[Rfam]
RNA sequence: UGCAGCCCAGUCAAAUUCGGUCCCUGUCCCUCCGUGUCGGGGACCGGCCACCGGCUGCCACAGUGACCCCCAUGGCCACGAGCCCCGUGUCCCCUCCCGUGGGGCCCGGGGGGUGAAUCCACUGGGGACAGGG
Numbered sequence: 001u002g003c004a005g006c007c008c009a010g011u012c013a014a015a016u017u018c019g020g021u022c023c024c025u026g027u028c029c030c031u032c033c034g035u036g037u038c039g040g041g042g043a044c045c046g047g048c049c050a051c052c053g054g055c056u057g058c059c060a061c062a063g064u065g066a067c068c069c070c071c072a073u074g075g076c077c078a079c080g081a082g083c084c085c086c087g088u089g090u091c092c093c094c095u096c097c098c099g100u101g102g103g104g105c106c107c108g109g110g111g112g113g114u115g116a117a118u119c120c121a122c123u124g125g126g127g128a129c130a131g132g133g
Stems, first nucleotide, its partner, number of pairs: 002058004018046009028036001071125001074122001083111005
The record is a 133-nucleotide sequence from Zosterops hypoxanthus, which matches "Small nucleolar RNA SNORA5" in Rfam. Rfam 15.1 lists 2,226 matches to the family in 629 species. The organism belongs to Zosterops, within Eukaryota. About the family: ACA5 is a member of the H/ACA class of snoRNA that guide the sites of modification of uridines to pseudouridines.